[Rfam]
RNA sequence: GGGCACACCCGUAGACCUCGCCUGACUCUGCCCGUGGCCGGGCGAGGGGGACAGUGUGUGCAAGAGUCACGGGGAGUUCUUACCAGCUCCAGCCAGCUCGCUCGCCGGCUGGAUAAAUGCAGUGCUCCCAACAUUC
Numbered sequence: 001g002g003g004c005a006c007a008c009c010c011g012u013a014g015a016c017c018u019c020g021c022c023u024g025a026c027u028c029u030g031c032c033c034g035u036g037g038c039c040g041g042g043c044g045a046g047g048g049g050g051a052c053a054g055u056g057u058g059u060g061c062a063a064g065a066g067u068c069a070c071g072g073g074g075a076g077u078u079c080u081u082a083c084c085a086g087c088u089c090c091a092g093c094c095a096g097c098u099c100g101c102u103c104g105c106c107g108g109c110u111g112g113a114u115a116a117a118u119g120c121a122g123u124g125c126u127c128c129c130a131a132c133a134u135u136c
Stems, first nucleotide, its partner, number of pairs: 003061006016047009073128004078124001081121001083119001093112005